[Rfam]
RNA sequence: GGCCUCCCUCUGUGGGGCGAUCGAUCAUGGGGCUCCGUGAUUGAUGGCUCCGCAGAGGGAGGCC
Numbered sequence: 001g002g003c004c005u006c007c008c009u010c011u012g013u014g015g016g017g018c019g020a021u022c023g024a025u026c027a028u029g030g031g032g033c034u035c036c037g038u039g040a041u042u043g044a045u046g047g048c049u050c051c052g053c054a055g056a057g058g059g060a061g062g063c064c
Base pairs, nucleotide, nucleotide: 001064002063003062004061005060006059007058008057009056010055011054012053013052014051015050016049017048018047020045021044022043023042024041025040026039027038028037029036030035
RNA: mir-9242 microRNA precursor family
Organism: Eptesicus fuscus